[Rfam]
RNA: Z30 small nucleolar RNA
Organism: Eleutherodactylus coqui
RNA sequence: AGCUGUGAUGAGCAAGAUACUGUAUAAUAUGACCUGGUAAUGCAAGAGUUAAAUCUGCAUUGACUAGUAAAUGAUCAUGUGAUCUUCUGUCUGAGCUG
Numbered sequence: 001a002g003c004u005g006u007g008a009u010g011a012g013c014a015a016g017a018u019a020c021u022g023u024a025u026a027a028u029a030u031g032a033c034c035u036g037g038u039a040a041u042g043c044a045a046g047a048g049u050u051a052a053a054u055c056u057g058c059a060u061u062g063a064c065u066a067g068u069a070a071a072u073g074a075u076c077a078u079g080u081g082a083u084c085u086u087c088u089g090u091c092u093g094a095g096c097u098g
Stems, first nucleotide, its partner, number of pairs: 002096002042058003